[Rfam]
RNA sequence: GCAGAUCUGAAAAGCGGGCGUGCCCGGCCGAGCGCCGGCGCCGCCCCACCCAAGGUGCAAGCCACGCUCCCGCGGGGUCGUGGCGAACCUCUCAGGUUCCGAUGACAGAUGGGGAGGA
Number, nucleotide and partner (000 for none) at each position: 001g000002c113003a000004g000005a110006u109007c108008u107009g106010a000011a000012a000013a000014g000015c000016g046017g045018g044019c043020g000021u000022g000023c000024c000025c000026g000027g000028c000029c000030g000031a000032g000033c000034g000035c000036c000037g000038g000039c000040g000041c000042c000043g019044c018045c017046c016047c000048a097049c096050c095051c000052a092053a000054g000055g091056u000057g089058c000059a000060a000061g084062c083063c082064a081065c080066g079067c000068u000069c000070c000071c000072g000073c000074g000075g000076g000077g000078u000079c066080g065081u064082g063083g062084c061085g000086a000087a000088c000089c057090u000091c055092u052093c000094a000095g050096g049097u048098u000099c000100c000101g000102a000103u000104g000105a000106c009107a008108g007109a006110u005111g000112g000113g002114g000115a000116g000117g000118a000
RNA: Glycine riboswitch aptamer